[Rfam]
RNA sequence: GUGUCGAAUGUGAGGAUUGGAGAAUAUUAAACAGAAAAGCAUAUCAUCUUGUUUCUUUCAUCUGUUUAAUUUUCUCCAAUAUCUCAUUUCCGGCAU
Numbered sequence: 001g002u003g004u005c006g007a008a009u010g011u012g013a014g015g016a017u018u019g020g021a022g023a024a025u026a027u028u029a030a031a032c033a034g035a036a037a038a039g040c041a042u043a044u045c046a047u048c049u050u051g052u053u054u055c056u057u058u059c060a061u062c063u064g065u066u067u068a069a070u071u072u073u074c075u076c077c078a079a080u081a082u083c084u085c086a087u088u089u090c091c092g093g094c095a096u
Stems, first nucleotide, its partner, number of pairs: 004093003008089001011086004016080006023073002026070005032064002